[Rfam]
RNA sequence: GCCACGUCUAGCCCGACGGGGUGAAAGGCCGGAUUCCUUCACCGGCUUGGCGUGGCCCUUUCUUGAGAAGC
Numbered sequence: 001g002c003c004a005c006g007u008c009u010a011g012c013c014c015g016a017c018g019g020g021g022u023g024a025a026a027g028g029c030c031g032g033a034u035u036c037c038u039u040c041a042c043c044g045g046c047u048u049g050g051c052g053u054g055g056c057c058c059u060u061u062c063u064u065g066a067g068a069a070g071c
Stems, first nucleotide, its partner, number of pairs: 001056008011022004028046005037070004
This 71-nucleotide sequence from Hydrocarboniphaga effusa belongs to the Rfam family "int-alpA RNA".
The organism belongs to Hydrocarboniphaga effusa, within Bacteria.
Rfam describes the family as follows. Acidobacteria (1 example), Planctomycetes (1 example), Proteobacteria.